[Rfam]
RNA: Archaeal large subunit ribosomal RNA, nucleotides 2764 to 3030
RNA sequence: GACCGCUUGAGGGGAAGGAACCCCUAGUACGAGAGGAACAGGGUUCCGGGGCCUCCAGUUUACCGGUUGUCCGGUAGGGCAAUGCCGGGCAGCCGCGCCCUGAGGGGUAACCGCUGAAAGCAUCUAAGCGGGAACCCCUCCCCUAAAAGAGGCGGUCAGGCGUUAGCCGGGGCCUUCCCCUAGAAGAGGGGGUUGAUGGGGUGGGGAUGUAAGCUCCAAGGUUGUAAGACCGAGGAGUUUAGUCCGCCACUCCCAAUCAGGCUCCCC
Numbered sequence: 001g002a003c004c005g006c007u008u009g010a011g012g013g014g015a016a017g018g019a020a021c022c023c024c025u026a027g028u029a030c031g032a033g034a035g036g037a038a039c040a041g042g043g044u045u046c047c048g049g050g051g052c053c054u055c056c057a058g059u060u061u062a063c064c065g066g067u068u069g070u071c072c073g074g075u076a077g078g079g080c081a082a083u084g085c086c087g088g089g090c091a092g093c094c095g096c097g098c099c100c101u102g103a104g105g106g107g108u109a110a111c112c113g114c115u116g117a118a119a120g121c122a123u124c125u126a127a128g129c130g131g132g133a134a135c136c137c138c139u140c141c142c143c144u145a146a147a148a149g150a151g152g153c154g155g156u157c158a159g160g161c162g163u164u165a166g167c168c169g170g171g172g173c174c175u176u177c178c179c180c181u182a183g184a185a186g187a188g189g190g191g192g193u194u195g196a197u198g199g200g201g202u203g204g205g206g207a208u209g210u211a212a213g214c215u216c217c218a219a220g221g222u223u224g225u226a227a228g229a230c231c232g233a234g235g236a237g238u239u240u241a242g243u244c245c246g247c248c249a250c251u252c253c254c255a256a257u258c259a260g261g262c263u264c265c266c267c
Stems, first nucleotide, its partner, number of pairs: 001157008011143004017047007048101005056095001058093001063088005068081005104138003111131005172262004176192005197255003200251005205245003213238005220231003